[Rfam]
RNA sequence: AAGCAUGAUAGAGGCGCGGAAGUCAAGAGUAUCCCCUCCUGUAUGGACAGGCCCGGGGGAGGGGGGAAAGGGACUUUCGCCGAGGUUCCGCAUCGUGCCUGAAAGAAGCGGAGCCGGGCUGUGGGAAAAGAUCCCACAGACUGCCGCCCUGUAAGGGGCGGAGCGCUGUCGUGGAU
Numbered sequence: 001a002a003g004c005a006u007g008a009u010a011g012a013g014g015c016g017c018g019g020a021a022g023u024c025a026a027g028a029g030u031a032u033c034c035c036c037u038c039c040u041g042u043a044u045g046g047a048c049a050g051g052c053c054c055g056g057g058g059g060a061g062g063g064g065g066g067a068a069a070g071g072g073a074c075u076u077u078c079g080c081c082g083a084g085g086u087u088c089c090g091c092a093u094c095g096u097g098c099c100u101g102a103a104a105g106a107a108g109c110g111g112a113g114c115c116g117g118g119c120u121g122u123g124g125g126a127a128a129a130g131a132u133c134c135c136a137c138a139g140a141c142u143g144c145c146g147c148c149c150u151g152u153a154a155g156g157g158g159c160g161g162a163g164c165g166c167u168g169u170c171g172u173g174g175a176u
Stems, first nucleotide, its partner, number of pairs: 006171006016080009032065008084115008093106002116142002119139008144161007
Shown here is a 176-nucleotide RNA from Oscillibacter sp. PC13, a member of the family "Lysine riboswitch aptamer". Riboswitches are metabolite binding domains within certain messenger RNAs that serve as precision sensors for their corresponding targets. Taxonomically the source falls in Oscillibacter (Bacteria, Clostridia, Eubacteriales, Oscillospiraceae). Rfam 15.1 lists 3,224 matches to the family in 1,923 species.